This 97-nucleotide RNA from Polaribacter sp. MED152 belongs to the Rfam family "SAM-I/IV (S-adenosyl methionine) riboswitch aptamer".

RNA sequence: UGGCAGUAUCAGGAACGCAAGAAUUGCGUACCAACCGAGCAAAAAAGCUACGGUGGUUUAGUAUACGGACAGUUCUGUCAAAAUAAAUGAACAUCCA
Numbered sequence: 001u002g003g004c005a006g007u008a009u010c011a012g013g014a015a016c017g018c019a020a021g022a023a024u025u026g027c028g029u030a031c032c033a034a035c036c037g038a039g040c041a042a043a044a045a046a047g048c049u050a051c052g053g054u055g056g057u058u059u060a061g062u063a064u065a066c067g068g069a070c071a072g073u074u075c076u077g078u079c080a081a082a083a084u085a086a087a088u089g090a091a092c093a094u095c096c097a
Base pairs, nucleotide, nucleotide: 006066007065008064009063015029016028017027018026019025020024030057031056032055035053036052037051038049039048040047046088068079069078070077071076

It is one of the family's seed sequences. The family's consensus secondary structure is taken from published work. A reference for the family is Weinberg et al. (2008), "The aptamer core of SAM-IV riboswitches mimics the ligand-binding site of SAM-I riboswitches", RNA. Lineage of the source: Bacteria > Pseudomonadati > Bacteroidota > Flavobacteriia > Polaribacter.